[Rfam]
RNA: PyrR binding site
RNA sequence: UUCACCUUUAAUGGCAGUCCAGAGAGGCUGAGAAGGUAUGAUAUGAAACGUUAUCGAGUUUUUUAUGUGAAGACACUCGUGUGCCGUUUUUUAACAUUGACUUUUUCAACCCUCUAGAUAAAAAUCUAGGGGGUUUUUAUUU
Numbered sequence: 001u002u003c004a005c006c007u008u009u010a011a012u013g014g015c016a017g018u019c020c021a022g023a024g025a026g027g028c029u030g031a032g033a034a035g036g037u038a039u040g041a042u043a044u045g046a047a048a049c050g051u052u053a054u055c056g057a058g059u060u061u062u063u064u065a066u067g068u069g070a071a072g073a074c075a076c077u078c079g080u081g082u083g084c085c086g087u088u089u090u091u092u093a094a095c096a097u098u099g100a101c102u103u104u105u106u107c108a109a110c111c112c113u114c115u116a117g118a119u120a121a122a123a124a125u126c127u128a129g130g131g132g133g134u135u136u137u138u139a140u141u142u
Stems, first nucleotide, its partner, number of pairs: 004037006015030005041068008050059003108135012